Background: The record is a 248-nucleotide RNA sequence from Microcaecilia unicolor, which matches "Small nucleolar RNA SNORA53" in Rfam. The match comes from Rfam's covariance-model search (190 bits). It is annotated as an H/ACA-box small nucleolar RNA. Rfam describes the family as follows. The snoRNA ACA53 belongs to the H/ACA family of pseudouridylation guide snoRNAs.
RNA sequence: AACAUGCUCCCUUAGAUCCACCUUUGUGAAUGCCAGACUUGUGCUGAGUUUGGCUAGAUUUCAUUUGAAGUGUCUAGGCAUUCCAGGCAAGUGGUAUUCAGCAACUUUUUUGGUUGUCCAGUCGAAGGUGCUUGAGUCAUUGGCAUGUGAGAGAAUUACACCUGCAUGUUAGCCUUUGAUGUUCUGAUGUUAAUACUGUACUGUUACAGUGUUUUUCACCAUCAGGACUUGGCUGGUAUGCAGACAUU
Numbered sequence: 001a002a003c004a005u006g007c008u009c010c011c012u013u014a015g016a017u018c019c020a021c022c023u024u025u026g027u028g029a030a031u032g033c034c035a036g037a038c039u040u041g042u043g044c045u046g047a048g049u050u051u052g053g054c055u056a057g058a059u060u061u062c063a064u065u066u067g068a069a070g071u072g073u074c075u076a077g078g079c080a081u082u083c084c085a086g087g088c089a090a091g092u093g094g095u096a097u098u099c100a101g102c103a104a105c106u107u108u109u110u111u112g113g114u115u116g117u118c119c120a121g122u123c124g125a126a127g128g129u130g131c132u133u134g135a136g137u138c139a140u141u142g143g144c145a146u147g148u149g150a151g152a153g154a155a156u157u158a159c160a161c162c163u164g165c166a167u168g169u170u171a172g173c174c175u176u177u178g179a180u181g182u183u184c185u186g187a188u189g190u191u192a193a194u195a196c197u198g199u200a201c202u203g204u205u206a207c208a209g210u211g212u213u214u215u216u217c218a219c220c221a222u223c224a225g226g227a228c229u230u231g232g233c234u235g236g237u238a239u240g241c242a243g244a245c246a247u248u
Stems, first nucleotide, its partner, number of pairs: 002148007011136005019130008027100006037092004044086003048083001051080002054077001057074001062072003101117006162243005169236001171234004183226007194218001198214001200210003